[Rfam]
RNA sequence: CUGCAGGCUCCAGCAUGGGGGGGCCUGCCGUGGCUCCCACCAUUCCUGCUGCACUGCCAGAGCAUCCCGGGGCCGUUUGAGGCCUCUCCCGGCACUUCCCGGGGGCGGUUAUGGAAACCCCGCACAUCC
Numbered sequence: 001c002u003g004c005a006g007g008c009u010c011c012a013g014c015a016u017g018g019g020g021g022g023g024c025c026u027g028c029c030g031u032g033g034c035u036c037c038c039a040c041c042a043u044u045c046c047u048g049c050u051g052c053a054c055u056g057c058c059a060g061a062g063c064a065u066c067c068c069g070g071g072g073c074c075g076u077u078u079g080a081g082g083c084c085u086c087u088c089c090c091g092g093c094a095c096u097u098c099c100c101g102g103g104g105g106c107g108g109u110u111a112u113g114g115a116a117a118c119c120c121c122g123c124a125c126a127u128c129c
Stems, first nucleotide, its partner, number of pairs: 003057004016042003021036005068122005083108002086105003090101003
Rfam assigns this 129-nucleotide RNA sequence from Lanius ludovicianus to the family "Small nucleolar RNA SNORA9".
Taxonomically the source falls in Lanius (Eukaryota, Eumetazoa, Euteleostomi, Telluraves).
ACA9 is a member of the H/ACA class of snoRNA that guide the sites of modification of uridines to pseudouridines.
Its Rfam clan is "SNORA9 clan".
Pairs were carried over by alignment from the consensus structure, which was predicted with PFOLD.